The record is a 63-nucleotide RNA sequence from Nicotiana attenuata, which matches "Plastid-clpP 5UTR RNA" in Rfam. The family's RNA type in Rfam is cis-regulatory element. Lineage of the source: Eukaryota > Streptophytina > Magnoliopsida > asterids > Nicotiana. The base pairs follow the family's consensus structure, which was predicted with LocARNA. Rfam describes the family as follows. Plastid clpP is a non-coding RNA (ncRNA) recognised in plastids. It was found in the prime untranslated region (5UTR) of a protease complex subunit (clpP) in plastids, suggesting a posible cis-regulatory function.
[Rfam]
RNA sequence: AAUUUUGUUCGUAAGAACAAAGAGAAGCAGAUUUAUUCUAUACUCGAUAAGUACCAGAUGGGA
Numbered sequence: 001a002a003u004u005u006u007g008u009u010c011g012u013a014a015g016a017a018c019a020a021a022g023a024g025a026a027g028c029a030g031a032u033u034u035a036u037u038c039u040a041u042a043c044u045c046g047a048u049a050a051g052u053a054c055c056a057g058a059u060g061g062g063a
Base pairs, nucleotide, nucleotide: 003022004021006019007018008017009016010015043062044061045060